[Rfam]
RNA sequence: GGGAUUUUACCAUUUAUUGUUAAGGUUUGGUUGGUGACACCCUUGUGAAAGGGGGUGCGGCCAAUGACAGUAUUUCAAGCGAUGACUUUUAUGAUUAGCUUUGGAGUGCUUAUCUUGAUGCUGUCAGACAGAAAAAAUAAUCCGCCUCAUAUGCUACUCACGAUAGCUUGAUAGACGGAUCAUUUGUUAAAAUGUGAAAUUAAUUAAUUGCAUCGCUCCGCUCUACGCGGAUAUUGCCAUGCCGUCAGUGUUCGAAGCACUGGCA
Numbered sequence: 001g002g003g004a005u006u007u008u009a010c011c012a013u014u015u016a017u018u019g020u021u022a023a024g025g026u027u028u029g030g031u032u033g034g035u036g037a038c039a040c041c042c043u044u045g046u047g048a049a050a051g052g053g054g055g056u057g058c059g060g061c062c063a064a065u066g067a068c069a070g071u072a073u074u075u076c077a078a079g080c081g082a083u084g085a086c087u088u089u090u091a092u093g094a095u096u097a098g099c100u101u102u103g104g105a106g107u108g109c110u111u112a113u114c115u116u117g118a119u120g121c122u123g124u125c126a127g128a129c130a131g132a133a134a135a136a137a138u139a140a141u142c143c144g145c146c147u148c149a150u151a152u153g154c155u156a157c158u159c160a161c162g163a164u165a166g167c168u169u170g171a172u173a174g175a176c177g178g179a180u181c182a183u184u185u186g187u188u189a190a191a192a193u194g195u196g197a198a199a200u201u202a203a204u205u206a207a208u209u210g211c212a213u214c215g216c217u218c219c220g221c222u223c224u225a226c227g228c229g230g231a232u233a234u235u236g237c238c239a240u241g242c243c244g245u246c247a248g249u250g251u252u253c254g255a256a257g258c259a260c261u262g263g264c265a
Stems, first nucleotide, its partner, number of pairs: 001237001003235003007231002011227001013207002016204003021149001023147003029142004036058001038057007066125007080093002104116003210221002244264009